[Rfam]
RNA sequence: GGUUCGGGAGCCACCCUUCGGGACGGGCGGCACGAAUGGAACCUGAUCGGUCUCUUCGCAAGCGGUGCGCGCCCGUGGCCCGACGGGUGGUGCG
Numbered sequence: 001g002g003u004u005c006g007g008g009a010g011c012c013a014c015c016c017u018u019c020g021g022g023a024c025g026g027g028c029g030g031c032a033c034g035a036a037u038g039g040a041a042c043c044u045g046a047u048c049g050g051u052c053u054c055u056u057c058g059c060a061a062g063c064g065g066u067g068c069g070c071g072c073c074c075g076u077g078g079c080c081c082g083a084c085g086g087g088u089g090g091u092g093c094g
Base pairs, nucleotide, nucleotide: 001043002042003041004040005039010031011030012029014027015026016025066094067093068092069091070090071088072087073086074085075084
The record is a 94-nucleotide RNA sequence, which matches "Rhodo-rpoB RNA" in Rfam.